[Rfam]
RNA sequence: CGAUUGCAUUGUCCAAAGGUCUUUUCUCACCUUUGCUUGCACAAUGAUGGGAAAAUGACCUUGGGACACGCCCGGAUAUGAACAUAAAGGUGAAGCGUAAGCUUCGCGAUAUGCAAAUAUCAGGGAGGAUUGCGGGAGUGCGUAACACGUAACAAUCCGUGCAAUCA
Numbered sequence: 001c002g003a004u005u006g007c008a009u010u011g012u013c014c015a016a017a018g019g020u021c022u023u024u025u026c027u028c029a030c031c032u033u034u035g036c037u038u039g040c041a042c043a044a045u046g047a048u049g050g051g052a053a054a055a056u057g058a059c060c061u062u063g064g065g066a067c068a069c070g071c072c073c074g075g076a077u078a079u080g081a082a083c084a085u086a087a088a089g090g091u092g093a094a095g096c097g098u099a100a101g102c103u104u105c106g107c108g109a110u111a112u113g114c115a116a117a118u119a120u121c122a123g124g125g126a127g128g129a130u131u132g133c134g135g136g137a138g139u140g141c142g143u144a145a146c147a148c149g150u151a152a153c154a155a156u157c158c159g160u161g162c163a164a165u166c167a
Stems, first nucleotide, its partner, number of pairs: 002166006011067004017061005023055003026051004031046001032043001034041002072124002075121005083113003092105002095102002127158006138148003
A member of the RNA family "Clostridiales-1 RNA" from Eubacterium ventriosum, 167 nucleotides long. It is one of the family's seed sequences. Rfam 15.1 lists 1,172 matches to the family in 137 species.